[Rfam]
The family of this 137-nucleotide sequence is "EGFOA RNA". The family's consensus secondary structure is taken from published work.
Nucleotides: 137
Stems, first nucleotide, its partner, number of pairs: 006114005044109002047107004051062004069136007078092004093119005
Number, partner (000 for none) and nucleotide at each position: 001000a002000c003000u004000u005000c006114u007113c008112c009111a010110g011000c012000g013000u014000a015000g016000c017000a018000a019000u020000u021000a022000u023000c024000a025000c026000u027000u028000a029000g030000u031000u032000g033000u034000u035000a036000c037000a038000u039000a040000u041000a042000c043000c044109g045108u046000g047107c048106c049105u050104g051062u052061c053060g054059c055000u056000a057000a058000c059054g060053c061052g062051a063000g064000g065000u066000a067000g068000a069136g070135c071134a072133a073132a074131g075130u076000g077000a078092a079091c080090a081089c082000u083000g084000u085000g086000g087000u088000g089081g090080u091079g092078u093119a094118c095117u096116c097115g098000g099000u100000a101000a102000a103000g104050c105049a106048g107047g108045a109044c110010c111009u112008g113007g114006g115097c116096g117095a118094g119093u120000u121000u122000u123000a124000a125000a126000a127000a128000a129000c130075a131074c132073u133072u134071u135070g136069u137000a